[Rfam]
RNA sequence: GGGAGUAGGAGGGCUGCUGACAGAGUUAGACUCUGAGGAAAGUCCCCUCUCCAUAGCGCAUGUGCCUCACAGAAGAGAGAAGUCAGAGAUGGUUAGGUUAAUGCAAUAGAAACGAACGAUAUAGGGGUAGUACAAUGAUGUUGAAAGACAGAGGUUUCCCUAUUGUCGAUGAAACGAGCAACCGCACAGGAGCAAGUCCAAGCAGUUCCAUUGAGAUUGCGCGUCUAGGAACAGGUAGGAUGCUUAGUUGAAUGCAGCCACCGCAAGGUAACAGAAAGGGGCUUACUCCCUACUCCC
Numbered sequence: 001g002g003g004a005g006u007a008g009g010a011g012g013g014c015u016g017c018u019g020a021c022a023g024a025g026u027u028a029g030a031c032u033c034u035g036a037g038g039a040a041a042g043u044c045c046c047c048u049c050u051c052c053a054u055a056g057c058g059c060a061u062g063u064g065c066c067u068c069a070c071a072g073a074a075g076a077g078a079g080a081a082g083u084c085a086g087a088g089a090u091g092g093u094u095a096g097g098u099u100a101a102u103g104c105a106a107u108a109g110a111a112a113c114g115a116a117c118g119a120u121a122u123a124g125g126g127g128u129a130g131u132a133c134a135a136u137g138a139u140g141u142u143g144a145a146a147g148a149c150a151g152a153g154g155u156u157u158c159c160c161u162a163u164u165g166u167c168g169a170u171g172a173a174a175c176g177a178g179c180a181a182c183c184g185c186a187c188a189g190g191a192g193c194a195a196g197u198c199c200a201a202g203c204a205g206u207u208c209c210a211u212u213g214a215g216a217u218u219g220c221g222c223g224u225c226u227a228g229g230a231a232c233a234g235g236u237a238g239g240a241u242g243c244u245u246a247g248u249u250g251a252a253u254g255c256a257g258c259c260a261c262c263g264c265a266a267g268g269u270a271a272c273a274g275a276a277a278g279g280g281g282c283u284u285a286c287u288c289c290c291u292a293c294u295c296c297c
Stems, first nucleotide, its partner, number of pairs: 001297003005293005010287002012259006021035005040284003044281005049192004056222004061188005066079003070075001081094004096183002102180003117168003121163007140149002196241004205232005
The record is a 297-nucleotide RNA, which matches "Archaeal RNase P" in Rfam.
The sequence is in the family's curated seed alignment.
For this family Rfam cites "Ribonuclease P: unity and diversity in a tRNA processing ribozyme" (Frank and Pace, Annu Rev Biochem, 1998).
Ribonuclease P (RNase P) is a ubiquitous endoribonuclease, found in archaea, bacteria and eukarya as well as chloroplasts and mitochondria.